The record is a 169-nucleotide RNA from Thamnidium elegans, which matches "U11 spliceosomal RNA" in Rfam. Its family is annotated with U11 snRNP, pre-mRNA 5'-splice site binding and mRNA 5'-splice site recognition in the Gene Ontology. The family is grouped with related families in Rfam's "U1 clan". The source organism's lineage runs through Eukaryota, Mucoromycota, Mucorales, Mucoraceae and Thamnidium. Pairs were carried over by alignment from the consensus structure, which is taken from published work.

RNA sequence: AAAAAGGGCGCGUCACUUUGUUGGGGCAGGGAGAGCAAUCUCUUUUGCAAAAACCUAUGUGACAAGAGUCUUGAUUUACUCUUGCGGUAUGGCAAUCAAGACAUAUCGAGCGCAUAAUUUUUUGAUUUGGGUAGCUCACUUUUGGCUUCGCUCAAGCCGGAGCUGCCCU
Numbered sequence: 001a002a003a004a005a006g007g008g009c010g011c012g013u014c015a016c017u018u019u020g021u022u023g024g025g026g027c028a029g030g031g032a033g034a035g036c037a038a039u040c041u042c043u044u045u046u047g048c049a050a051a052a053a054c055c056u057a058u059g060u061g062a063c064a065a066g067a068g069u070c071u072u073g074a075u076u077u078a079c080u081c082u083u084g085c086g087g088u089a090u091g092g093c094a095a096u097c098a099a100g101a102c103a104u105a106u107c108g109a110g111c112g113c114a115u116a117a118u119u120u121u122u123u124g125a126u127u128u129g130g131g132u133a134g135c136u137c138a139c140u141u142u143u144g145g146c147u148u149c150g151c152u153c154a155a156g157c158c159g160g161a162g163c164u165g166c167c168c169u
Stems, first nucleotide, its partner, number of pairs: 008113004013062004063084007085108007130167008144158004